[Rfam]
Shown here is a 215-nucleotide RNA sequence from Miscanthus lutarioriparius, a member of the family "MIR6217 microRNA precursor family". The match comes from Rfam's covariance-model search (116 bits). NCBI's taxonomy places the organism under Eukaryota, Spermatophyta, Magnoliopsida, Panicoideae, Miscanthus.
RNA sequence: CAGAAUAACUUAUUCUAUAUACUUAUUUACGACGAUAAUUACUAUGUUAAUUUACGAGAUUAUAGUAACUCCUUACUAAGUGGUUUAAUAUAACGUUAUGGUAAAUAUCCCCAUGUGUUAUAGUAACUUAACUAUCGUAAAUAUGUAUUGAUAUUAUCGUAAAUUACUAUAUAAAAUUAUAGUAAAUGGAGUGGCUCUGAGAAUAACUUAUUUUG
Numbered sequence: 001c002a003g004a005a006u007a008a009c010u011u012a013u014u015c016u017a018u019a020u021a022c023u024u025a026u027u028u029a030c031g032a033c034g035a036u037a038a039u040u041a042c043u044a045u046g047u048u049a050a051u052u053u054a055c056g057a058g059a060u061u062a063u064a065g066u067a068a069c070u071c072c073u074u075a076c077u078a079a080g081u082g083g084u085u086u087a088a089u090a091u092a093a094c095g096u097u098a099u100g101g102u103a104a105a106u107a108u109c110c111c112c113a114u115g116u117g118u119u120a121u122a123g124u125a126a127c128u129u130a131a132c133u134a135u136c137g138u139a140a141a142u143a144u145g146u147a148u149u150g151a152u153a154u155u156a157u158c159g160u161a162a163a164u165u166a167c168u169a170u171a172u173a174a175a176a177u178u179a180u181a182g183u184a185a186a187u188g189g190a191g192u193g194g195c196u197c198u199g200a201g202a203a204u205a206a207c208u209u210a211u212u213u214u215g
Base pairs, nucleotide, nucleotide: 001215002214003213004212005211006210007209008208010206011205012204013203014202015201016200018199019198021196023194024193025192026191027190028189032183033182035180036179037178038177039176040175043171044170045169046168048166049165050164051163052162053161054160055159058158059157060156062154063153064152067148073140074139075138076137080135081134082133083132084131085130086125087124089122090121091120092119093118094117095116096115100110101109